[Rfam]
This 76-nucleotide sequence from Salarias fasciatus belongs to the Rfam family "mir-190 microRNA precursor family". Its Rfam clan is "mir-50 clan". For this family Rfam cites "Cloning and expression of new microRNAs from zebrafish" (Kloosterman et al., Nucleic Acids Res, 2006). The match comes from Rfam's covariance-model search (81 bits). The base pairs follow the family's consensus structure, which was predicted with RNAalifold.
RNA sequence: GGCUCUGUCUGAUAUGUUUGAUAUAUUAGGUUGUUAUACAGUCCCAACUAUAUAUCAAACAUAUUCCUACAGUGUC
Number, nucleotide and partner (000 for none) at each position: 001g000002g000003c000004u000005c072006u071007g070008u069009c000010u000011g065012a064013u063014a062015u061016g060017u059018u058019u057020g056021a055022u054023a053024u052025a051026u000027u000028a000029g049030g048031u047032u046033g045034u000035u000036a000037u000038a000039c000040a000041g000042u000043c000044c000045c033046a032047a031048c030049u029050a000051u025052a024053u023054a022055u021056c020057a019058a018059a017060c016061a015062u014063a013064u012065u011066c000067c000068u000069a008070c007071a006072g005073u000074g000075u000076c000